Record summary
This 64-nucleotide sequence from Pan troglodytes belongs to the Rfam family "MAT2A 3'UTR stem loop B". It is annotated as a cis-regulatory element. For this family Rfam cites "New families of human regulatory RNA structures identified by comparative analysis of vertebrate genomes" (Parker et al., Genome Res, 2011).
RNA sequence: AAAGGCACCUGGCAUCUUUGUGAUGCCAUACAGGGAAGUCACAGGCCAGUACCUGAGGGUCUGA
Numbered sequence: 001a002a003a004g005g006c007a008c009c010u011g012g013c014a015u016c017u018u019u020g021u022g023a024u025g026c027c028a029u030a031c032a033g034g035g036a037a038g039u040c041a042c043a044g045g046c047c048a049g050u051a052c053c054u055g056a057g058g059g060u061c062u063g064a
Stems, first nucleotide, its partner, number of pairs: 003062004008057001012053001017045008025031001
Dot-bracket structure: ..((((.(...(....(((((((((.....)......)))))))).......)...).))))..